[Rfam]
RNA: atpB RNA
Organism: Corynebacterium ulcerans
RNA sequence: CUGCGAUCGCCAUGCUGAUGUGCGACGGAGUCCGUGGUGGUCGCAGAGAGUUUUCAGACGUCCAUCGCACCGCGCACUCGCUUGAGCGGGUAAUAUGCGGCCCGAACGCGGGAGAGAACGCUGAGCGUUACAAC
Numbered sequence: 001c002u003g004c005g006a007u008c009g010c011c012a013u014g015c016u017g018a019u020g021u022g023c024g025a026c027g028g029a030g031u032c033c034g035u036g037g038u039g040g041u042c043g044c045a046g047a048g049a050g051u052u053u054u055c056a057g058a059c060g061u062c063c064a065u066c067g068c069a070c071c072g073c074g075c076a077c078u079c080g081c082u083u084g085a086g087c088g089g090g091u092a093a094u095a096u097g098c099g100g101c102c103c104g105a106a107c108g109c110g111g112g113a114g115a116g117a118a119c120g121c122u123g124a125g126c127g128u129u130a131c132a133a134c
Stems, first nucleotide, its partner, number of pairs: 001046012070100005076091006